[Rfam]
RNA sequence: CGUUAAGGGCGUAUGGCGGAUGCCUAGGCUUCAAGAGGCGAAGAAAGACGUGGUAAGCUGCGAAAAGCUGCGGGGAUUGGCACACACGAAAUGAUCCGCAGAUAUCUGAAUGGGGCAACCCACUAUACAAGAGUAUAGUAUUCCCGUAAGGGGAGGCAAACCUUCCGAACUGAAACAUCUAAGUAGGAAGAGGAAAAGAAAUCAACAGAGAUUCCGAGAGUAGUGGCGAGCGAAAUCGGAAGAGCCCAAAAGUAUCUAUAUAGAUAACAGAAUGUUUUGGAAAGGACAACCGCAGAGGGUGAUAGUCCCGUAAGUGAAAUCUAUAUACAUAUGAAAAAGAGUAGGGCGGGACACGAGAAAUCCUGUCUGAAUAUGGGGGGACCAUCCUCCAAGGCUAAAUACUCCUUGAAGACCGAUAGCGAACAAGUACCGUGAGGGAAAGGUGAAAAGUAUUUCGAAAAGAAAGAUGAAAGAGACCCUGAAACCAUACGCCUACAAG
Numbered sequence: 001c002g003u004u005a006a007g008g009g010c011g012u013a014u015g016g017c018g019g020a021u022g023c024c025u026a027g028g029c030u031u032c033a034a035g036a037g038g039c040g041a042a043g044a045a046a047g048a049c050g051u052g053g054u055a056a057g058c059u060g061c062g063a064a065a066a067g068c069u070g071c072g073g074g075g076a077u078u079g080g081c082a083c084a085c086a087c088g089a090a091a092u093g094a095u096c097c098g099c100a101g102a103u104a105u106c107u108g109a110a111u112g113g114g115g116c117a118a119c120c121c122a123c124u125a126u127a128c129a130a131g132a133g134u135a136u137a138g139u140a141u142u143c144c145c146g147u148a149a150g151g152g153g154a155g156g157c158a159a160a161c162c163u164u165c166c167g168a169a170c171u172g173a174a175a176c177a178u179c180u181a182a183g184u185a186g187g188a189a190g191a192g193g194a195a196a197a198g199a200a201a202u203c204a205a206c207a208g209a210g211a212u213u214c215c216g217a218g219a220g221u222a223g224u225g226g227c228g229a230g231c232g233a234a235a236u237c238g239g240a241a242g243a244g245c246c247c248a249a250a251a252g253u254a255u256c257u258a259u260a261u262a263g264a265u266a267a268c269a270g271a272a273u274g275u276u277u278u279g280g281a282a283a284g285g286a287c288a289a290c291c292g293c294a295g296a297g298g299g300u301g302a303u304a305g306u307c308c309c310g311u312a313a314g315u316g317a318a319a320u321c322u323a324u325a326u327a328c329a330u331a332u333g334a335a336a337a338a339g340a341g342u343a344g345g346g347c348g349g350g351a352c353a354c355g356a357g358a359a360a361u362c363c364u365g366u367c368u369g370a371a372u373a374u375g376g377g378g379g380g381a382c383c384a385u386c387c388u389c390c391a392a393g394g395c396u397a398a399a400u401a402c403u404c405c406u407u408g409a410a411g412a413c414c415g416a417u418a419g420c421g422a423a424c425a426a427g428u429a430c431c432g433u434g435a436g437g438g439a440a441a442g443g444u445g446a447a448a449a450g451u452a453u454u455u456c457g458a459a460a461a462g463a464a465a466g467a468u469g470a471a472a473g474a475g476a477c478c479c480u481g482a483a484a485c486c487a488u489a490c491g492c493c494u495a496c497a498a499g
Stems, first nucleotide, its partner, number of pairs: 007494010022479001023443002027414002029411007036403002038157002046107003049062003068101007077089003112121003122139007141154005161192001162190005172179002202209002212399001213240005223231002243396004253331003257327009267315002273288005291295001297309003344368008375390005430437002453465004
This 499-nucleotide part of an RNA from Apibacter mensalis belongs to the Rfam family "Bacterial large subunit ribosomal RNA". Taxonomically the source falls in Apibacter (Bacteria, Bacteroidota, Flavobacteriales, Weeksellaceae).